[Rfam]
RNA sequence: GGGUCAAUGAUGACAACAGUAAGUCAAGAACAGAAUGAUGACAUAAAAAUCAUGCUCAAUAGGAUUAUGCUGAGGCCC
Numbered sequence: 001g002g003g004u005c006a007a008u009g010a011u012g013a014c015a016a017c018a019g020u021a022a023g024u025c026a027a028g029a030a031c032a033g034a035a036u037g038a039u040g041a042c043a044u045a046a047a048a049a050u051c052a053u054g055c056u057c058a059a060u061a062g063g064a065u066u067a068u069g070c071u072g073a074g075g076c077c078c
Base pairs, nucleotide, nucleotide: 001078002077003076004075005072006071008069009068
This 78-nucleotide RNA sequence from Rattus norvegicus belongs to the Rfam family "Small nucleolar RNA SNORD115". NCBI's taxonomy places the organism under Eukaryota, Deuterostomia, Vertebrata, Eutheria, Rattus. It scores 80 bits against the family's covariance model. The base pairs follow the family's consensus structure, which was predicted with PFOLD.